[Rfam]
RNA sequence: AGAAAAUUGAGAGGAUCUUUCCCUAGUACGAGAGGACCGGGAUGGACGUACCUCUGGUGUACCAGUUGUUUUGCCAAAAGCAGUGCUGGGUAGCUAUGUACGGACUAGAUAACCGCUGAAAGCAUCUAAGCGGGAAACUAACCUCAAAACUAAUUUUCUCUAUGAGGACUGUGGUAGACUACCACGUUGAUAGGCUGAAUGUGUAAGAAGGGUAACCUUUUUAGCUAAUCAGUACUAAUCGUCCCAUUG
Numbered sequence: 001a002g003a004a005a006a007u008u009g010a011g012a013g014g015a016u017c018u019u020u021c022c023c024u025a026g027u028a029c030g031a032g033a034g035g036a037c038c039g040g041g042a043u044g045g046a047c048g049u050a051c052c053u054c055u056g057g058u059g060u061a062c063c064a065g066u067u068g069u070u071u072u073g074c075c076a077a078a079a080g081c082a083g084u085g086c087u088g089g090g091u092a093g094c095u096a097u098g099u100a101c102g103g104a105c106u107a108g109a110u111a112a113c114c115g116c117u118g119a120a121a122g123c124a125u126c127u128a129a130g131c132g133g134g135a136a137a138c139u140a141a142c143c144u145c146a147a148a149a150c151u152a153a154u155u156u157u158c159u160c161u162a163u164g165a166g167g168a169c170u171g172u173g174g175u176a177g178a179c180u181a182c183c184a185c186g187u188u189g190a191u192a193g194g195c196u197g198a199a200u201g202u203g204u205a206a207g208a209a210g211g212g213u214a215a216c217c218u219u220u221u222u223a224g225c226u227a228a229u230c231a232g233u234a235c236u237a238a239u240c241g242u243c244c245c246a247u248u249g
Base pairs, nucleotide, nucleotide: 001159002158003157004156005155006154007153008152011145012144013143014142017045018044020042021041022040023039047102048101049100050099051098055096056095057094062089063088064087065086066085067082068081069080070079071078072077106140107139108138113133114132115131116130117129163246166244167243168242169241170186171185172184173183174182191237192236193235194233195232196231197230198229201225207220208219209218210217211216